[Rfam]
RNA: Hepatitis C virus stem-loop SL8670
Organism: Orthohepacivirus hominis
RNA sequence: AGAGUCAAGGGGUUGAGGAGGACGAGCGGAACCUGAGAGUCUUCACGGAGGCUAUGACCAGGUACUCCGCCCCCCCCGGAGACCCCCCCAAA
Numbered sequence: 001a002g003a004g005u006c007a008a009g010g011g012g013u014u015g016a017g018g019a020g021g022a023c024g025a026g027c028g029g030a031a032c033c034u035g036a037g038a039g040u041c042u043u044c045a046c047g048g049a050g051g052c053u054a055u056g057a058c059c060a061g062g063u064a065c066u067c068c069g070c071c072c073c074c075c076c077c078g079g080a081g082a083c084c085c086c087c088c089c090a091a092a
Stems, first nucleotide, its partner, number of pairs: 009084002013080002017076002020073002026071001029067002031063005038053006